Shown here is a 168-nucleotide RNA from Anisodus acutangulus, a member of the family "MIR390 microRNA precursor family". The family has 16 seed sequences and 649 matches in Rfam 15.1. The match comes from Rfam's covariance-model search (93 bits). On this family, see Gustafson et al., Nucleic Acids Res 2005: "ASRP: the Arabidopsis Small RNA Project Database".

RNA sequence: UGGAGGGAUCUGUAAAGCUCAGGAGGGAUAGCGCCAUGGAAAAUGAUGUGAUGUUUUUUUUUUCCUUCUGAAUUUGUUUUGCCCAAAAAAACAUCUUUUUUUUUCGAUACAAUAAAUUCAUCAAAUUAUAUUUGGCGCUAUCCAUCCUGAGUUCUAUGGCUCCUUCUU
Numbered sequence: 001u002g003g004a005g006g007g008a009u010c011u012g013u014a015a016a017g018c019u020c021a022g023g024a025g026g027g028a029u030a031g032c033g034c035c036a037u038g039g040a041a042a043a044u045g046a047u048g049u050g051a052u053g054u055u056u057u058u059u060u061u062u063u064c065c066u067u068c069u070g071a072a073u074u075u076g077u078u079u080u081g082c083c084c085a086a087a088a089a090a091a092c093a094u095c096u097u098u099u100u101u102u103u104u105c106g107a108u109a110c111a112a113u114a115a116a117u118u119c120a121u122c123a124a125a126u127u128a129u130a131u132u133u134g135g136c137g138c139u140a141u142c143c144a145u146c147c148u149g150a151g152u153u154c155u156a157u158g159g160c161u162c163c164u165u166c167u168u
Base pairs, nucleotide, nucleotide: 010159016153017152018151019150020149021148022147023146024145026143027142028141029140030139031138032137033136034135035134